[Rfam]
RNA sequence: UCCCCGUCACAACGGCUUCCUGGCGUGGCGGAUGACCCUAAUGGAGCG
Numbered sequence: 001u002c003c004c005c006g007u008c009a010c011a012a013c014g015g016c017u018u019c020c021u022g023g024c025g026u027g028g029c030g031g032a033u034g035a036c037c038c039u040a041a042u043g044g045a046g047c048g
Stems, first nucleotide, its partner, number of pairs: 004031007013022002015047003019044002
Rfam assigns this 48-nucleotide RNA sequence from Roseovarius nubinhibens to the family "SAM/SAH riboswitch aptamer". A search with the family's covariance model found it, with a score of 55 bits. Pairs were carried over by alignment from the consensus structure, which is taken from published work. Gene Ontology terms of the family: regulation of gene expression and S-adenosylmethionine metabolic process.